[Rfam]
RNA sequence: GGGAUUCCUUAUCUUCUCUAUACGUUGGUGUAAUGGAGCCUGUCUUCCUGUGCUCUGGGGCAGAACACACGAAGACAGGCCCGUUAUGGGUUGCCGCUAUCAGUGCUUUA
Numbered sequence: 001g002g003g004a005u006u007c008c009u010u011a012u013c014u015u016c017u018c019u020a021u022a023c024g025u026u027g028g029u030g031u032a033a034u035g036g037a038g039c040c041u042g043u044c045u046u047c048c049u050g051u052g053c054u055c056u057g058g059g060g061c062a063g064a065a066c067a068c069a070c071g072a073a074g075a076c077a078g079g080c081c082c083g084u085u086a087u088g089g090g091u092u093g094c095c096g097c098u099a100u101c102a103g104u105g106c107u108u109u110a
Stems, first nucleotide, its partner, number of pairs: 001095002004092001021086002024084001036082001038080007047071001049069003054064004
Rfam assigns this 110-nucleotide sequence from Chimaeribacter arupi to the family "tp2". On this family, see Rivas et al., Curr Biol 2001: "Computational identification of noncoding RNAs in E. coli by comparative genomics". It scores 66 bits against the family's covariance model.